[Rfam]
The record is a 170-nucleotide sequence from Aurantiacibacter spongiae, which matches "6S / SsrS RNA" in Rfam. It scores 53 bits against the family's covariance model. The family's consensus secondary structure is taken from published work.
RNA sequence: GCGGGACUGCCCGGCACGAGCCUUCGAUAUCCCUGAGGCUAUAAGCAAAUCCAAGGGAGCUGUCCCUGCCCUGGCCCACCGGUUCGGCCGUGGGGUCGGGGCAUACGGCACCCACCUGACCCUUAGGCGUCAGUGGAUUCUCCCGGCAAACGACCCAUGGUGGUCCCGCC
Numbered sequence: 001g002c003g004g005g006a007c008u009g010c011c012c013g014g015c016a017c018g019a020g021c022c023u024u025c026g027a028u029a030u031c032c033c034u035g036a037g038g039c040u041a042u043a044a045g046c047a048a049a050u051c052c053a054a055g056g057g058a059g060c061u062g063u064c065c066c067u068g069c070c071c072u073g074g075c076c077c078a079c080c081g082g083u084u085c086g087g088c089c090g091u092g093g094g095g096u097c098g099g100g101g102c103a104u105a106c107g108g109c110a111c112c113c114a115c116c117u118g119a120c121c122c123u124u125a126g127g128c129g130u131c132a133g134u135g136g137a138u139u140c141u142c143c144c145g146g147c148a149a150a151c152g153a154c155c156c157a158u159g160g161u162g163g164u165c166c167c168g169c170c
Stems, first nucleotide, its partner, number of pairs: 002168010013155002017152002030137003033133004038128002055113003059109005068102007075094005